[Rfam]
RNA: Small nucleolar RNA SNORD63
RNA sequence: GUGCAAUGAUGUAUUUGUCACAUCAUUCUGAAGGAAAGUUUGUGGUGACUUGUUAUUACUGAGCACA
Numbered sequence: 001g002u003g004c005a006a007u008g009a010u011g012u013a014u015u016u017g018u019c020a021c022a023u024c025a026u027u028c029u030g031a032a033g034g035a036a037a038g039u040u041u042g043u044g045g046u047g048a049c050u051u052g053u054u055a056u057u058a059c060u061g062a063g064c065a066c067a
Base pairs, nucleotide, nucleotide: 001066002065003064004063